Background: Shown here is a 117-nucleotide sequence from Heyndrickxia oleronia, a member of the family "PyrR binding site". A search with the family's covariance model found it, with a score of 61 bits. This family represents the PyrR binding site and terminator structure. This RNA structure is found upstream of a variety of genes involved in pyrimidine biosynthesis and transport. The alignment also includes a portion of the antiterminator structure. Rfam classes the family as a cis-regulatory element. A reference for the family is Bonner et al. (2001), "Molecular recognition of pyr mRNA by the Bacillus subtilis attenuation regulatory protein PyrR", Nucleic Acids Res.

Nucleotides: 117
Stems, first nucleotide, its partner, number of pairs: 005035004013030006046076003049072002052069002057064002079112001081110012
Number, partner (000 for none) and nucleotide at each position: 001000g002000g003000u004000a005035c006034c007033u008032u009000u010000a011000a012000u013030u014029c015028a016027g017026u018025c019000c020000a021000g022000a023000g024000a025018g026017g027016c028015u029014g030013a031000c032008a033007a034006g035005g036000a037000c038000a039000g040000c041000g042000g043000a044000a045000a046076u047075u048074u049072a050071u051000a052069a053068u054000c055000a056000a057064a058063c059000a060000c061000u062000a063058g064057u065000g066000g067000u068053g069052u070000a071050a072049u073000u074048a075047g076046a077000u078000u079112a080000c081110a082109c083108c084107c085106u086105u087104c088103u089102g090101u091100u092099u093000g094000a095000u096000u097000a098000u099092a100091a101090a102089u103088a104087g105086a106085a107084g108083g109082g110081u111000u112079u113000a114000u115000u116000g117000u